The family of this 422-nucleotide RNA from Corynebacterium occultum is "Bacterial RNase P class A". The family's consensus secondary structure is taken from published work. The match comes from Rfam's covariance-model search (287 bits). Rfam classes the family as a ribozyme.
[Rfam]
RNA sequence: UGAGCUGGCCGGGUGAUUGCGGCCACCGAACCCCACUCUGGGUGAAACCUGGUGGAGGCGGUGCGCCGAGGAAAGUCCGGACUCCACAGAGCACGGUGGUUGUUAACGGCAACCCGGGGUGACCCGCGGGCAAGUGCAACAGAAAGUAGACCGCCCUCCUUAAGGCCUUGAGCUGGGGGAGGGUAAGGGUGAAAGGGUGCGUUAAGAGCGCACCAGCAGGCCAGGUGACUGGUCUGGCUAGGUAAACCCCACCGGGAGCAAGGCAUUAAGCCGUACCCCCUUGAGGUACGGCGGAACGGAUGACCAAGGGCUGCUCGCCCGAGUCCGUAGGUAGCUGCUUGAGGCGGCCAGCGAUGGUCGGCCCAGAUGGAUGAUCACCGCCCCACAAGGUACAGAAUCCGGCUUAUAGGCCAGCUCAUUCG
Numbered sequence: 001u002g003a004g005c006u007g008g009c010c011g012g013g014u015g016a017u018u019g020c021g022g023c024c025a026c027c028g029a030a031c032c033c034c035a036c037u038c039u040g041g042g043u044g045a046a047a048c049c050u051g052g053u054g055g056a057g058g059c060g061g062u063g064c065g066c067c068g069a070g071g072a073a074a075g076u077c078c079g080g081a082c083u084c085c086a087c088a089g090a091g092c093a094c095g096g097u098g099g100u101u102g103u104u105a106a107c108g109g110c111a112a113c114c115c116g117g118g119g120u121g122a123c124c125c126g127c128g129g130g131c132a133a134g135u136g137c138a139a140c141a142g143a144a145a146g147u148a149g150a151c152c153g154c155c156c157u158c159c160u161u162a163a164g165g166c167c168u169u170g171a172g173c174u175g176g177g178g179g180a181g182g183g184u185a186a187g188g189g190u191g192a193a194a195g196g197g198u199g200c201g202u203u204a205a206g207a208g209c210g211c212a213c214c215a216g217c218a219g220g221c222c223a224g225g226u227g228a229c230u231g232g233u234c235u236g237g238c239u240a241g242g243u244a245a246a247c248c249c250c251a252c253c254g255g256g257a258g259c260a261a262g263g264c265a266u267u268a269a270g271c272c273g274u275a276c277c278c279c280c281u282u283g284a285g286g287u288a289c290g291g292c293g294g295a296a297c298g299g300a301u302g303a304c305c306a307a308g309g310g311c312u313g314c315u316c317g318c319c320c321g322a323g324u325c326c327g328u329a330g331g332u333a334g335c336u337g338c339u340u341g342a343g344g345c346g347g348c349c350a351g352c353g354a355u356g357g358u359c360g361g362c363c364c365a366g367a368u369g370g371a372u373g374a375u376c377a378c379c380g381c382c383c384c385a386c387a388a389g390g391u392a393c394a395g396a397a398u399c400c401g402g403c404u405u406a407u408a409g410g411c412c413a414g415c416u417c418a419u420u421c422g
Stems, first nucleotide, its partner, number of pairs: 001418010011407001012379007020068004024063005073405003077402005082258004089316004094254005099113005114128001115126004129249002134247002136243002151188002153184009196214006216238001217236008262336003272327002275324002308320004343362001345360006